[Rfam]
RNA sequence: GGCUUUUUAAAGCAACUACACACACGUAUCGUCACAUGCAUUGGGGUGCCGGCCCAAGCCGGUGAAUGUCUGGGAUACGUGGAGGAUUAAC
Dot-bracket structure: ......................((((((((....((.(((((.....(((((......))))).))))).)).))))))))..........
A member of the RNA family "t44 RNA" from Candidatus Methylospira mobilis, 91 nucleotides long. Pairs were carried over by alignment from the consensus structure, which was predicted with LocARNA. The organism belongs to Candidatus Methylospira, within Bacteria.